[Rfam]
RNA sequence: AUCGCGUGGCGGGUGGGGAGGCUCCAAUCUUACUAACCCUAAUGGCUGCCGCUGUGCUCCCCGCACCCGUCUGCUGUUUUACUCGCUGACUUUCAGCGGACGGGGGGAGCAACCUGGGGGUGGUGGGGGGAAGGGGCUUACCAUCAAAAAACGUCAGCGACGGGUCUCCCCAGCCCGGCCCGCCCUGGCCUGGGGUCUCCGUCACCCCACGCUGCCGGGGGCCUGCCGCGGAGGCUCCCUCCGCCGCACCGCACGGAGGCCGCGGUCGGCCGGUUCGCGCCACUGCCGCCGCGAAGAGUUCGUCUCUGUCAGCCUCGGUGGCGGUCGGGAGCGGAAGGGCACGUCCCCGCGCCGGGGGCCCCAGCAGAGCAAAACGGGAGCGGCGUCCUCGGGACAACCGCGGCGCUUCCCUUACCCAUGGGAUGCGCGGACGGCGCCGCUCCGACAAAC
Numbered sequence: 001a002u003c004g005c006g007u008g009g010c011g012g013g014u015g016g017g018g019a020g021g022c023u024c025c026a027a028u029c030u031u032a033c034u035a036a037c038c039c040u041a042a043u044g045g046c047u048g049c050c051g052c053u054g055u056g057c058u059c060c061c062c063g064c065a066c067c068c069g070u071c072u073g074c075u076g077u078u079u080u081a082c083u084c085g086c087u088g089a090c091u092u093u094c095a096g097c098g099g100a101c102g103g104g105g106g107g108a109g110c111a112a113c114c115u116g117g118g119g120g121u122g123g124u125g126g127g128g129g130g131a132a133g134g135g136g137c138u139u140a141c142c143a144u145c146a147a148a149a150a151a152c153g154u155c156a157g158c159g160a161c162g163g164g165u166c167u168c169c170c171c172a173g174c175c176c177g178g179c180c181c182g183c184c185c186u187g188g189c190c191u192g193g194g195g196u197c198u199c200c201g202u203c204a205c206c207c208c209a210c211g212c213u214g215c216c217g218g219g220g221g222c223c224u225g226c227c228g229c230g231g232a233g234g235c236u237c238c239c240u241c242c243g244c245c246g247c248a249c250c251g252c253a254c255g256g257a258g259g260c261c262g263c264g265g266u267c268g269g270c271c272g273g274u275u276c277g278c279g280c281c282a283c284u285g286c287c288g289c290c291g292c293g294a295a296g297a298g299u300u301c302g303u304c305u306c307u308g309u310c311a312g313c314c315u316c317g318g319u320g321g322c323g324g325u326c327g328g329g330a331g332c333g334g335a336a337g338g339g340c341a342c343g344u345c346c347c348c349g350c351g352c353c354g355g356g357g358g359c360c361c362c363a364g365c366a367g368a369g370c371a372a373a374a375c376g377g378g379a380g381c382g383g384c385g386u387c388c389u390c391g392g393g394a395c396a397a398c399c400g401c402g403g404c405g406c407u408u409c410c411c412u413u414a415c416c417c418a419u420g421g422g423a424u425g426c427g428c429g430g431a432c433g434g435c436g437c438c439g440c441u442c443c444g445a446c447a448a449a450c
Base pairs, nucleotide, nucleotide: 005187006186008184009183010182011181012180013179014178016176017175018174020166021165022164023163024162056110057109058108059107060106068102069101070100071099072098073097074096075095076094085158086157087156088155089154090153091151092150093149190364191363192362193361194360195359196358219346220345221344222343224341225340226339227338234332235331236330237329238328239327243322244321245320246319247318261293262292263291264290265289267288268287269286270285272281273280274279295307296306297305298304378442379441380440381439382438383437384436385435386434387433401430403428404427405426408423409422410421411420
Shown here is a 450-nucleotide RNA from Eolophus roseicapilla, a member of the family "Vertebrate telomerase RNA". Rfam links the family to the GO terms telomerase catalytic core complex, telomerase activity and telomere maintenance via telomerase. Rfam's curators write: Telomerase is a ribonucleoprotein reverse transcriptase that synthesises telomeric DNA. Telomerase RNAs differ greatly in sequence and structure between vertebrates, ciliates and yeasts, but they share a 5' pseudoknot structure close to the template sequence. Vertebrate telomerase RNAs have a 3' H/ACA snoRNA-like domain. The source organism's lineage runs through Eukaryota, Sarcopterygii, Neoaves, Psittaciformes and Eolophus. It is annotated as a non-coding RNA gene. The family is grouped with related families in Rfam's "Telomerase clan".